[Rfam]
RNA sequence: GGUGACAAAAACAUAAGUCCUCAUAUAAUCACAGGGUUAUGGCCUGUAAGUUUCUACCUGAUGACCGUUAUUCAUCGGACUAUGAGGGAAAGUGCAACGGCU
Numbered sequence: 001g002g003u004g005a006c007a008a009a010a011a012c013a014u015a016a017g018u019c020c021u022c023a024u025a026u027a028a029u030c031a032c033a034g035g036g037u038u039a040u041g042g043c044c045u046g047u048a049a050g051u052u053u054c055u056a057c058c059u060g061a062u063g064a065c066c067g068u069u070a071u072u073c074a075u076c077g078g079a080c081u082a083u084g085a086g087g088g089a090a091a092g093u094g095c096a097a098c099g100g101c102u
Stems, first nucleotide, its partner, number of pairs: 018088008029049001031047005058078007
Record summary: Purine riboswitch aptamer: a 102-nucleotide RNA sequence from Fictibacillus macauensis. Rfam links the family to the GO term purine nucleobase biosynthetic process. The family's consensus secondary structure is taken from published work.